About this RNA
Rfam assigns this 170-nucleotide sequence from Ahniella affigens to the family "Manganese Mn2+ riboswitch aptamer (yybP-ykoY)". NCBI's taxonomy places the organism under Bacteria, Pseudomonadati, Pseudomonadota, Gammaproteobacteria, Ahniella. From the family's description: This RNA was originally discovered in E. coli during a large scale screen and was named SraF. The family was later found to exist upstream of related families of protein genes in many bacteria, including the the yybP and ykoK genes in B. subtilis. The specific functions of these proteins are unknown, but this structured RNA element may be involved in their genetic regulation as a riboswitch.

[Rfam]
RNA sequence: UUACAGGUCAUCGGGGAGUAGCCGCACCGGUAUUCGGUGGCAAGCGUCAACAUACUUGGCCCACAGGCCAUGGCGUUUGCAGCAUCCACUUGGCAAGACCUUUGACCACUGCACCUCCGAUUUGGCCGGGGUGGGCAGUGGUCAUUGUCGUCUGUCCGGCCAGGGAGUUU
Numbered sequence: 001u002u003a004c005a006g007g008u009c010a011u012c013g014g015g016g017a018g019u020a021g022c023c024g025c026a027c028c029g030g031u032a033u034u035c036g037g038u039g040g041c042a043a044g045c046g047u048c049a050a051c052a053u054a055c056u057u058g059g060c061c062c063a064c065a066g067g068c069c070a071u072g073g074c075g076u077u078u079g080c081a082g083c084a085u086c087c088a089c090u091u092g093g094c095a096a097g098a099c100c101u102u103u104g105a106c107c108a109c110u111g112c113a114c115c116u117c118c119g120a121u122u123u124g125g126c127c128g129g130g131g132u133g134g135g136c137a138g139u140g141g142u143c144a145u146u147g148u149c150g151u152c153u154g155u156c157c158g159g160c161c162a163g164g165g166a167g168u169u170u
Stems, first nucleotide, its partner, number of pairs: 026038003040080010057070005081169003085165003